[Rfam]
RNA sequence: GGAGUAGUUCCCCACCCAGGAGCUACUUUGCCAUAUUCCGAAUUC
Numbered sequence: 001g002g003a004g005u006a007g008u009u010c011c012c013c014a015c016c017c018a019g020g021a022g023c024u025a026c027u028u029u030g031c032c033a034u035a036u037u038c039c040g041a042a043u044u045c
Stems, first nucleotide, its partner, number of pairs: 001029011

Description:
A member of the RNA family "Plastid-psbN 5UTR RNA" from Nicotiana attenuata, 45 nucleotides long. Plastid psbN is a non-coding RNA (ncRNA) recognised in plastids. It was reported as a conserved 11 stem-loop in the prime untranslated region (5UTR) of psbN genes. A search with the family's covariance model found it, with a score of 62 bits. The family has 63 seed sequences and 2,345 matches in Rfam 15.1.